RNA sequence: AAGCAAGGUACAGCGACUAAAGGUGCUACGUCCUGUGGCAACGUCUUUGUGACUCUCAUUCUGAGUG
Numbered sequence: 001a002a003g004c005a006a007g008g009u010a011c012a013g014c015g016a017c018u019a020a021a022g023g024u025g026c027u028a029c030g031u032c033c034u035g036u037g038g039c040a041a042c043g044u045c046u047u048u049g050u051g052a053c054u055c056u057c058a059u060u061c062u063g064a065g066u067g
Stems, first nucleotide, its partner, number of pairs: 011049003015045003025039005053067001055065003